[Rfam]
RNA sequence: CCAAAGGCUCUUUUAAGAGCUACCCAUCUGUUCAGUAAAAGGGCUAU
Numbered sequence: 001c002c003a004a005a006g007g008c009u010c011u012u013u014u015a016a017g018a019g020c021u022a023c024c025c026a027u028c029u030g031u032u033c034a035g036u037a038a039a040a041g042g043g044c045u046a047u
Stems, first nucleotide, its partner, number of pairs: 006021006
This 47-nucleotide RNA from Cuculus canorus belongs to the Rfam family "Histone 3' UTR stem-loop". The source organism's lineage runs through Eukaryota, Sarcopterygii, Saurischia, Theropoda and Cuculus. About the family: The mRNAs of metazoan histone genes lack a poly-A tail. 3' end processing occurs at a site between a highly conserved stem-loop (modelled by this family) and a purine rich region around 20 nts downstream (the histone downstream element, or HDE). The stem-loop is bound by a 31 kDa stem-loop binding protein (SLBP - also termed the histone hairpin binding protein, or HBP). Together with U7 snRNA binding of the HDE, SLBP binding nucleate s the formation of the processing complex.